A member of the RNA family "Small nucleolar RNA SNORD72" from Cyprinus carpio, 76 nucleotides long. Rfam's curators write: snoRNA HBII-240 belongs to the CD family of snoRNAs. It is the human orthologue of the mouse MBII-240 and is predicted to guide 2'O-ribose methylation of the large 28S rRNA at residue U4590. The pairing is the family consensus, mapped onto this sequence. By type it is a C/D-box small nucleolar RNA. Gene Ontology terms of the family: nucleolus and RNA processing.
RNA sequence: GGCAUCUGUGAUGUCCAAAAAUAAAUGUCUGAACAAAUGACUGUCCAGUGAUUACAGGUUUAAACUGAGGUAAGCC
Number, nucleotide and partner (000 for none) at each position: 001g000002g075003c074004a071005u070006c069007u000008g000009u000010g000011a000012u000013g000014u000015c000016c000017a000018a000019a000020a000021a000022u000023a000024a000025a000026u000027g000028u000029c000030u000031g000032a000033a000034c000035a000036a000037a000038u000039g000040a000041c000042u000043g000044u000045c000046c000047a000048g000049u000050g000051a000052u000053u000054a000055c000056a000057g000058g000059u000060u000061u000062a000063a000064a000065c000066u000067g000068a000069g006070g005071u004072a000073a000074g003075c002076c000